[Rfam]
RNA sequence: CGUGUGGUGUGCGGCUUAGAAUCGCAUAGCGACACGGCCUACUUGAGGU
Numbered sequence: 001c002g003u004g005u006g007g008u009g010u011g012c013g014g015c016u017u018a019g020a021a022u023c024g025c026a027u028a029g030c031g032a033c034a035c036g037g038c039c040u041a042c043u044u045g046a047g048g049u
Stems, first nucleotide, its partner, number of pairs: 001036005007030002011025004015019001